[Rfam]
RNA sequence: CUUCCCAUUCAUUUGCUGCUAGAGUCUGGAUGACGUGAGCAGUUAUAUGCCCGGGAUAAAACAAGGUGGGGCCACUGCAAGCUGGGGUGGGGUACAUUUCAUCUCUUCUUCGUGGUCUAGACACUG
Number, nucleotide and partner (000 for none) at each position: 001c000002u000003u056004c055005c054006c053007a000008u000009u000010c000011a000012u000013u000014u000015g043016c042017u041018g040019c039020u038021a000022g000023a000024g000025u033026c032027u000028g000029g000030a000031u000032g026033a025034c000035g000036u000037g000038a020039g019040c018041a017042g016043u015044u000045a000046u000047a000048u000049g000050c000051c000052c000053g006054g005055g004056a003057u000058a000059a000060a000061a000062c000063a000064a000065g000066g000067u120068g000069g118070g117071g116072c115073c114074a113075c000076u112077g111078c000079a109080a000081g000082c000083u000084g105085g104086g103087g102088u101089g100090g099091g098092g097093u000094a000095c000096a000097u092098u091099u090100c089101a088102u087103c086104u085105c084106u000107u000108c000109u079110u000111c077112g076113u074114g073115g072116u071117c070118u069119a000120g067121a000122c000123a000124c000125u000126g000

Rfam assigns this 126-nucleotide RNA from Camelus ferus to the family "Small nucleolar RNA SNORA20". The base pairs follow the family's consensus structure, which was predicted with ILM. Its Rfam clan is "SNORA20 clan". Rfam links the family to the GO terms RNA processing and nucleolus. A search with the family's covariance model found it, with a score of 74 bits. About the family: ACA20 is a member of the H/ACA class of snoRNA that guide the sites of modification of uridines to pseudouridines.